[Rfam]
RNA sequence: UGGGCCUUUCCUGGACAACUUCGGAUAUAUUUGUCAGCAUAUGAGUCUAAUAUGGUGAAUAAAUGUGUCUGCAGUUCUGAGGUCCAG
Numbered sequence: 001u002g003g004g005c006c007u008u009u010c011c012u013g014g015a016c017a018a019c020u021u022c023g024g025a026u027a028u029a030u031u032u033g034u035c036a037g038c039a040u041a042u043g044a045g046u047c048u049a050a051u052a053u054g055g056u057g058a059a060u061a062a063a064u065g066u067g068u069c070u071g072c073a074g075u076u077c078u079g080a081g082g083u084c085c086a087g
Base pairs, nucleotide, nucleotide: 002085003084004083005082006081007080008079